Shown here is a 92-nucleotide sequence from Homo sapiens, a member of the family "mir-3180 microRNA precursor family". Gene Ontology terms of the family: RISC complex and miRNA-mediated post-transcriptional gene silencing. The base pairs follow the family's consensus structure, which was predicted with RNAalifold. The sequence is in the family's curated seed alignment.
[Rfam]
RNA sequence: GUGCGACGGGCGGAGCUUCCAGACGCUCCGCCCCACGUCGCAUGCGCCCCGGGAAAGCGUGGGGCGGAGCUUCCGGAGGCCCCGCCCUGCUG
Numbered sequence: 001g002u003g004c005g006a007c008g009g010g011c012g013g014a015g016c017u018u019c020c021a022g023a024c025g026c027u028c029c030g031c032c033c034c035a036c037g038u039c040g041c042a043u044g045c046g047c048c049c050c051g052g053g054a055a056a057g058c059g060u061g062g063g064g065c066g067g068a069g070c071u072u073c074c075g076g077a078g079g080c081c082c083c084g085c086c087c088u089g090c091u092g
Base pairs, nucleotide, nucleotide: 003090004089005088008087009086010085011084012083013082015080016079017078018077019076020075022073023072025070026069027068028067029066030065031064032063033062034061035060036059037058038057043053045051046050